[Rfam]
RNA sequence: AGCUUUUCGAAUCCGUGCAGAGAUUUUGUCAGACACCAACUUAUUAAGGCUGAUCAGACUUCCAAGAUAAGUGAAGUU
Numbered sequence: 001a002g003c004u005u006u007u008c009g010a011a012u013c014c015g016u017g018c019a020g021a022g023a024u025u026u027u028g029u030c031a032g033a034c035a036c037c038a039a040c041u042u043a044u045u046a047a048g049g050c051u052g053a054u055c056a057g058a059c060u061u062c063c064a065a066g067a068u069a070a071g072u073g074a075a076g077u078u
Base pairs, nucleotide, nucleotide: 002077003076004075005074006073008071011068012067013066016064017063020061021060022059024058025057026056028054029053030052